[Rfam]
RNA sequence: UAAGUAAAUCGCCUUAUCGCUGUUUGUUUUUUGCAAAUGGAGGAAAGUCCGAACACCAUAGUGCAACAUAGUGGCUAAUAACCACCAGUCGUGAGACUAGGAACAGUGCAACAGAAAGUAUGUACAGGUCAUGCUGUAGUGAAACCAGGUAAACUCUAUGUGGUGCAAUGUCAUGUAAACCAACGUUUGAGGGCGGCACGCUCGAUUGUUGGAGGGUAGGCAGCUAAAGUGUAUUGGUAACAAUGCACUCAGAUAAAUGAUAAGGGUUUUUUCUUUUUAGAAAAAGUACAGAAUUCGGCUUAUAGAUUUACUUAGAUA
Numbered sequence: 001u002a003a004g005u006a007a008a009u010c011g012c013c014u015u016a017u018c019g020c021u022g023u024u025u026g027u028u029u030u031u032u033g034c035a036a037a038u039g040g041a042g043g044a045a046a047g048u049c050c051g052a053a054c055a056c057c058a059u060a061g062u063g064c065a066a067c068a069u070a071g072u073g074g075c076u077a078a079u080a081a082c083c084a085c086c087a088g089u090c091g092u093g094a095g096a097c098u099a100g101g102a103a104c105a106g107u108g109c110a111a112c113a114g115a116a117a118g119u120a121u122g123u124a125c126a127g128g129u130c131a132u133g134c135u136g137u138a139g140u141g142a143a144a145c146c147a148g149g150u151a152a153a154c155u156c157u158a159u160g161u162g163g164u165g166c167a168a169u170g171u172c173a174u175g176u177a178a179a180c181c182a183a184c185g186u187u188u189g190a191g192g193g194c195g196g197c198a199c200g201c202u203c204g205a206u207u208g209u210u211g212g213a214g215g216g217u218a219g220g221c222a223g224c225u226a227a228a229g230u231g232u233a234u235u236g237g238u239a240a241c242a243a244u245g246c247a248c249u250c251a252g253a254u255a256a257a258u259g260a261u262a263a264g265g266g267u268u269u270u271u272u273c274u275u276u277u278u279a280g281a282a283a284a285a286g287u288a289c290a291g292a293a294u295u296c297g298g299c300u301u302a303u304a305g306a307u308u309u310a311c312u313u314a315g316a317u318a
Stems, first nucleotide, its partner, number of pairs: 001314010011303001012265007020040008045301003049298005054165004061199004066161005071085004086100001087098004101156002106154002108150002169222004180212005191203004229248008